[Rfam]
RNA: Small nucleolar RNA SNORA65
Organism: Anguilla anguilla
RNA sequence: CCCGCCACUAUACCUGUCUGCCUGGGUGACUGGUGUACUCCAGUGGGGGCUGAGAGAGAACCAGCUCUAGGAAGCAGGGCUGCCCUACACAUGGGCAACUCUGUGCCGAAAGAUCUGGGACAAAU
Number, nucleotide and partner (000 for none) at each position: 001c000002c000003c000004g000005c046006c045007a044008c043009u042010a000011u000012a000013c000014c000015u000016g000017u000018c033019u000020g030021c028022c000023u000024g000025g000026g000027u000028g021029a000030c020031u000032g000033g018034u000035g000036u000037a000038c000039u000040c000041c000042a009043g008044u007045g006046g005047g000048g000049g000050c000051u000052g000053a000054g000055a000056g000057a000058g000059a000060a000061c118062c117063a116064g115065c000066u112067c000068u110069a000070g107071g106072a000073a000074g000075c103076a102077g101078g100079g099080c000081u000082g000083c095084c094085c093086u000087a000088c000089a000090c000091a000092u000093g085094g084095g083096c000097a000098a000099c079100u078101c077102u076103g075104u000105g000106c071107c070108g000109a000110a068111a000112g066113a000114u000115c064116u063117g062118g061119g000120a000121c000122a000123a000124a000125u000